[Rfam]
RNA sequence: GGCUACCCGGCAACAGUUCUUCAGUGGCAUCCUUUAUGUCCUGUCUAGAAGCUAAAGCUGCCAGUUGAAGAACUGUUGCCCGUAGC
Numbered sequence: 001g002g003c004u005a006c007c008c009g010g011c012a013a014c015a016g017u018u019c020u021u022c023a024g025u026g027g028c029a030u031c032c033u034u035u036a037u038g039u040c041c042u043g044u045c046u047a048g049a050a051g052c053u054a055a056a057g058c059u060g061c062c063a064g065u066u067g068a069a070g071a072a073c074u075g076u077u078g079c080c081c082g083u084a085g086c
Stems, first nucleotide, its partner, number of pairs: 005083002010079003017072006026062003032057005
A member of the RNA family "mir-22 microRNA precursor family" from Sphenodon punctatus, 86 nucleotides long. A search with the family's covariance model found it, with a score of 74 bits. The literature on the family includes a 2005 paper in FEBS Lett by Fu et al., "Identification of human fetal liver miRNAs by a novel method". Rfam 15.1 lists 884 matches to the family in 639 species. The organism belongs to Sphenodon, within Eukaryota.